[Rfam]
RNA sequence: CCGCGCAGCCGGGGAGUUAGCGGUGCCCUGUACCUGCAAUCCGCUACAGCAGGGGUGAUGCCAAUCUGAGGCUUGUAUUUUGCAGAGCUGCCCUUUAUAAGCGGCGCUGACGUCUGGGUCUCACGCAACAGGAAUCCGUGAACCGUGUCAGGGCAGGAAUGCAGCAGCACUAAGCGGACGCUCUUGUGUGCCGUGAGGGUGCCUGGGCCGAGCUGGCUGUAAAGGUAACGUCUGUGAGUACAUUUCGAGGUGCGGCGCGCGU
Numbered sequence: 001c002c003g004c005g006c007a008g009c010c011g012g013g014g015a016g017u018u019a020g021c022g023g024u025g026c027c028c029u030g031u032a033c034c035u036g037c038a039a040u041c042c043g044c045u046a047c048a049g050c051a052g053g054g055g056u057g058a059u060g061c062c063a064a065u066c067u068g069a070g071g072c073u074u075g076u077a078u079u080u081u082g083c084a085g086a087g088c089u090g091c092c093c094u095u096u097a098u099a100a101g102c103g104g105c106g107c108u109g110a111c112g113u114c115u116g117g118g119u120c121u122c123a124c125g126c127a128a129c130a131g132g133a134a135u136c137c138g139u140g141a142a143c144c145g146u147g148u149c150a151g152g153g154c155a156g157g158a159a160u161g162c163a164g165c166a167g168c169a170c171u172a173a174g175c176g177g178a179c180g181c182u183c184u185u186g187u188g189u190g191c192c193g194u195g196a197g198g199g200u201g202c203c204u205g206g207g208c209c210g211a212g213c214u215g216g217c218u219g220u221a222a223a224g225g226u227a228a229c230g231u232c233u234g235u236g237a238g239u240a241c242a243u244u245u246c247g248a249g250g251u252g253c254g255g256c257g258c259g260c261g262u
Stems, first nucleotide, its partner, number of pairs: 002261005008056003011029004016024003033053005061255002064251004070246002074242001076240005082235005089227002093224006101217002103214003112208008120197006126188002129186005135178005145170004153162003
A member of the RNA family "Bacterial large signal recognition particle RNA" from Blautia sp. CAG:257, 262 nucleotides long. The family's RNA type in Rfam is non-coding RNA gene. The signal recognition particle (SRP) is a universally conserved ribonucleoprotein involved in the co-translational targeting of proteins to membranes. The organism belongs to Blautia, within Bacteria. A search with the family's covariance model found it, with a score of 182 bits.